[Rfam]
Record summary: A member of the RNA family "Small nucleolar RNA snoR74" from Lupinus albus, 130 nucleotides long. On this family, see Marker et al., Curr Biol 2002: "Experimental RNomics: identification of 140 candidates for small non-messenger RNAs in the plant Arabidopsis thaliana". Pairs were carried over by alignment from the consensus structure, which was predicted with WAR.

RNA sequence: AAAAAAGCAGGGGUUUGUUGCCUUUGUGAACUGGCCUCUCGUAACAUUCAGGGAUAUCAUAACCAAUGUUAUUGGGUGAACCUAUGUUUUUUUUUGUGUGGCUUAAGGUUCAGUAAACAAUGGAACAUGU
Numbered sequence: 001a002a003a004a005a006a007g008c009a010g011g012g013g014u015u016u017g018u019u020g021c022c023u024u025u026g027u028g029a030a031c032u033g034g035c036c037u038c039u040c041g042u043a044a045c046a047u048u049c050a051g052g053g054a055u056a057u058c059a060u061a062a063c064c065a066a067u068g069u070u071a072u073u074g075g076g077u078g079a080a081c082c083u084a085u086g087u088u089u090u091u092u093u094u095u096g097u098g099u100g101g102c103u104u105a106a107g108g109u110u111c112a113g114u115a116a117a118c119a120a121u122g123g124a125a126c127a128u129g130u
Base pairs, nucleotide, nucleotide: 005048006047011037012036014034015033017031063123064122065121067119068118069117070116077112078111079110080109081108082107083106